[Rfam]
RNA sequence: GGCGCAUCCCCGGGGGACCGCCGAUGCUGCGGUUGAGAGGAUGGUUGCAGCCAUCGACCCGCCGAACCUGAUCCGGCUGACACCGGCGUAGGGAGUGGAGCGCGGCACCCCC
Numbered sequence: 001g002g003c004g005c006a007u008c009c010c011c012g013g014g015g016g017a018c019c020g021c022c023g024a025u026g027c028u029g030c031g032g033u034u035g036a037g038a039g040g041a042u043g044g045u046u047g048c049a050g051c052c053a054u055c056g057a058c059c060c061g062c063c064g065a066a067c068c069u070g071a072u073c074c075g076g077c078u079g080a081c082a083c084c085g086g087c088g089u090a091g092g093g094a095g096u097g098g099a100g101c102g103c104g105g106c107a108c109c110c111c112c
Base pairs, nucleotide, nucleotide: 007099008098009097011061012060013059014058017033018032019031020030021029040055041054042053043052044051067092068091069090070089073086074085075084076083
About this RNA
The family of this 112-nucleotide sequence from Sphingomonas spermidinifaciens is "TPP riboswitch aptamer (THI element)". Taxonomically the source falls in Sphingomonas (Bacteria, Pseudomonadati, Pseudomonadota, Sphingomonadaceae). Gene Ontology term of the family: thiamine pyrophosphate binding.